[Rfam]
Nucleotides: 063
Base pairs, nucleotide, nucleotide: 007057008056009055010054011053012052013051014050019045020044021043022042023041024040025039031038032037
Number, partner (000 for none) and nucleotide at each position: 001000a002000u003000g004000a005000g006000g007057u008056u009055u010054c011053a012052c013051c014050a015000u016000g017000u018000u019045g020044g021043c022042c023041a024040g025039g026000c027000u028000g029000g030000u031038c032037u033000g034000a035000c036000c037032a038031g039025c040024c041023u042022g043021g044020c045019c046000a047000a048000c049000a050014u051013g052012g053011u054010g055009a056008a057007a058000c059000c060000u061000c062000a063000u